Background:
Shown here is a 131-nucleotide RNA sequence from Rousettus aegyptiacus, a member of the family "Small nucleolar RNA SNORA38". The family has 25 seed sequences and 628 matches in Rfam 15.1. ACA38 is a member of the H/ACA class of snoRNA that guide the sites of modification of uridines to pseudouridines. Rfam classes the family as an H/ACA-box small nucleolar RNA. Rfam links the family to the GO terms nucleolus, Cajal body and RNA processing. It scores 139 bits against the family's covariance model.
RNA sequence: CCCUGCUACAAAGGUGUGCCUGUGGUUUCCUAUCUUUGGACAUGUAAGAAUUGGAGGCAAAGAAAUAUGGACUUGGAGAAUUUUGGGGACAGCUUGCUCCUUGCAGGCUCAAGAUCAACCAUCCCACAAAA
Number, nucleotide and partner (000 for none) at each position: 001c000002c057003c056004u055005g000006c053007u000008a000009c000010a000011a000012a000013g000014g000015u044016g043017u042018g041019c000020c039021u038022g000023u000024g030025g029026u000027u000028u000029c025030c024031u000032a000033u000034c000035u000036u000037u000038g021039g020040a000041c018042a017043u016044g015045u000046a000047a000048g000049a000050a000051u000052u000053g006054g000055a004056g003057g002058c000059a000060a000061a000062g000063a000064a000065a000066u000067a000068u000069g124070g123071a122072c000073u121074u000075g000076g000077a000078g000079a000080a000081u000082u000083u000084u000085g000086g000087g000088g000089a000090c000091a109092g108093c107094u106095u105096g104097c103098u000099c000100c000101u000102u000103g097104c096105a095106g094107g093108c092109u091110c000111a000112a000113g000114a000115u000116c000117a000118a000119c000120c000121a073122u071123c070124c069125c000126a000127c000128a000129a000130a000131a000